[Rfam]
Nucleotides: 107
Base pairs, nucleotide, nucleotide: 001107003105004104006101057074060071
Number, partner (000 for none) and nucleotide at each position: 001107u002000g003105a004104c005000c006101a007000g008000g009000a010000u011000g012000a013000g014000g015000g016000c017000a018000u019000c020000u021000c022000u023000a024000u025000a026000u027000g028000a029000g030000c031000a032000a033000u034000u035000u036000a037000a038000a039000a040000u041000g042000c043000u044000c045000c046000c047000a048000a049000g050000c051000u052000u053000c054000g055000u056000a057074a058000a059000a060071g061000u062000u063000c064000u065000u066000u067000c068000c069000u070000u071060c072000c073000a074057u075000c076000u077000a078000u079000u080000u081000g082000a083000a084000u085000u086000u087000g088000g089000a090000a091000a092000u093000a094000u095000c096000u097000c098000u099000u100000c101006u102000u103000a104004g105003u106000u107001g